[Rfam]
RNA sequence: AUAUAGGAUGCUUUAUAUAGCUAUUGAACUGGUUUGUCACUCUCUGACAGAGAACAAUUUGUUAUUUGACAGAGAGAGACAAAACAGUUCAAUAGCUAAAGCAGCCUAUAAC
Numbered sequence: 001a002u003a004u005a006g007g008a009u010g011c012u013u014u015a016u017a018u019a020g021c022u023a024u025u026g027a028a029c030u031g032g033u034u035u036g037u038c039a040c041u042c043u044c045u046g047a048c049a050g051a052g053a054a055c056a057a058u059u060u061g062u063u064a065u066u067u068g069a070c071a072g073a074g075a076g077a078g079a080c081a082a083a084a085c086a087g088u089u090c091a092a093u094a095g096c097u098a099a100a101g102c103a104g105c106c107u108a109u110a111a112c
Stems, first nucleotide, its partner, number of pairs: 002110005011101004019097013033073007053063004

A member of the RNA family "mir-8517 microRNA precursor family" from Plutella xylostella, 112 nucleotides long. Lineage of the source: Eukaryota > Bilateria > Protostomia > Neoptera > Plutella. A search with the family's covariance model found it, with a score of 91 bits. Rfam links the family to the GO terms RISC complex and miRNA-mediated post-transcriptional gene silencing.